[Rfam]
RNA sequence: UGAUAUAGCCAUGAGAACAGCAACCUUGUAAACUGGUCAGGAUAGAAAUAUAGCAGCCAUGUCGAGAAGUACCGUGUCUUGUGGUUUUUUAAUUUUU
Numbered sequence: 001u002g003a004u005a006u007a008g009c010c011a012u013g014a015g016a017a018c019a020g021c022a023a024c025c026u027u028g029u030a031a032a033c034u035g036g037u038c039a040g041g042a043u044a045g046a047a048a049u050a051u052a053g054c055a056g057c058c059a060u061g062u063c064g065a066g067a068a069g070u071a072c073c074g075u076g077u078c079u080u081g082u083g084g085u086u087u088u089u090u091a092a093u094u095u096u097u
Base pairs, nucleotide, nucleotide: 004091005090007088008087009084010083011082012081013080014079017075018074020072022070025066026065027064028063034059035058036057037056042051043050044049
This 97-nucleotide RNA sequence from Metamycoplasma canadense belongs to the Rfam family "Bacterial small signal recognition particle RNA".
NCBI's taxonomy places the organism under Bacteria, Mycoplasmatota, Mycoplasmoidales, Metamycoplasmataceae, Metamycoplasma.
On this family, see Rosenblad et al., RNA Biol 2009: "Kinship in the SRP RNA family".